[Rfam]
RNA sequence: CUCGGUCCUCGGUAGUGGCCCUCGGGAUGUUCGGCAACGAACGCCCGCAGGCCUCGAUCGAAGACCGAC
Numbered sequence: 001c002u003c004g005g006u007c008c009u010c011g012g013u014a015g016u017g018g019c020c021c022u023c024g025g026g027a028u029g030u031u032c033g034g035c036a037a038c039g040a041a042c043g044c045c046c047g048c049a050g051g052c053c054u055c056g057a058u059c060g061a062a063g064a065c066c067g068a069c
Stems, first nucleotide, its partner, number of pairs: 002068006009061005017053004023047004028043006